[Rfam]
Shown here is a 130-nucleotide RNA sequence from Bifidobacterium italicum, a member of the family "TPP riboswitch aptamer (THI element)". Vitamin B(1) in its active form thiamin pyrophosphate (TPP) is an essential coenzyme that is synthesised by coupling of pyrimidine and thiazole moieties in bacteria. The source organism's lineage runs through Bacteria, Bacillati, Actinomycetes, Bifidobacteriaceae and Bifidobacterium.

RNA sequence: CUUAGGCGACACGGGGGCUGCCGCCCGCGCGAUGCGUAUCGCGCGGGCGGCGGCUGAGAGAGGGUGAACCUCGACCGAUUGAACGUGAAUCCGGACAAUGCCGGCGCACGGACGUCGUAGAUCUCCCGUG
Dot-bracket structure: .....(((((.(((.(((((((((((((((((......))))))))))))))))......(((.....))))..)))......((((...((((......))))..))))...)))))............